[Rfam]
The record is an 89-nucleotide sequence from Sulfitobacter sp. JL08, which matches "Glycine riboswitch aptamer" in Rfam. The match comes from Rfam's covariance-model search (59 bits). Rfam's curators write: This family represents the bacterial glycine riboswitch. Glycine riboswitches usually consist of two metabolite-binding aptamers domains with similar structures in tandem. The aptamers cooperatively bind glycine to regulate the expression of downstream genes. In Bacillus subtilis, this riboswitch is found upstream of the gcvT operon which controls glycine degradation.
RNA sequence: CCUAUUGAAACGGGAGAAUCGGCGCAGCGCCGAUGCCGAAGGAGCAACCGCCCCGGAAACUCUCAGGCCUAAAGGACCGUUUCAACCAA
Numbered sequence: 001c002c003u004a005u006u007g008a009a010a011c012g013g014g015a016g017a018a019u020c021g022g023c024g025c026a027g028c029g030c031c032g033a034u035g036c037c038g039a040a041g042g043a044g045c046a047a048c049c050g051c052c053c054c055g056g057a058a059a060c061u062c063u064c065a066g067g068c069c070u071a072a073a074g075g076a077c078c079g080u081u082u083c084a085a086c087c088a089a
Stems, first nucleotide, its partner, number of pairs: 006084008019033004035068003038064002042062003048056002
Dot-bracket structure: .....((((((((.....((((.......)))).(((((..(((...((.....))...))))).)))........)))))))).....